The family of this 136-nucleotide sequence is "Polynucleobacter-1 RNA". The family's RNA type in Rfam is small RNA. The family's consensus secondary structure is taken from published work.
[Rfam]
RNA sequence: GGCUUGCACAGGCCAAAAUCGUGUGCCCUAGACCUGGAUCUCGGAUCACAGGGAUGGAAGACUCACCGCGCUAGUGAGCACUCAGCAACUAUCCUUGACCGGACGACGAUCGCUAAUUGCCGCGGUUUUGCUGUUU
Numbered sequence: 001g002g003c004u005u006g007c008a009c010a011g012g013c014c015a016a017a018a019u020c021g022u023g024u025g026c027c028c029u030a031g032a033c034c035u036g037g038a039u040c041u042c043g044g045a046u047c048a049c050a051g052g053g054a055u056g057g058a059a060g061a062c063u064c065a066c067c068g069c070g071c072u073a074g075u076g077a078g079c080a081c082u083c084a085g086c087a088a089c090u091a092u093c094c095u096u097g098a099c100c101g102g103a104c105g106a107c108g109a110u111c112g113c114u115a116a117u118u119g120c121c122g123c124g125g126u127u128u129u130g131c132u133g134u135u136u
Base pairs, nucleotide, nucleotide: 006026007025008024009023010022034051035050036049037047038046039045040044062078063077064076065075083133084132085131086130087129093102094101108127109126110125111124112123113122
Dot-bracket structure: .....(((((...........))))).......(((((((...)))).)))..........((((.........))))....(((((.....((......)).....((((((........)))))).)))))...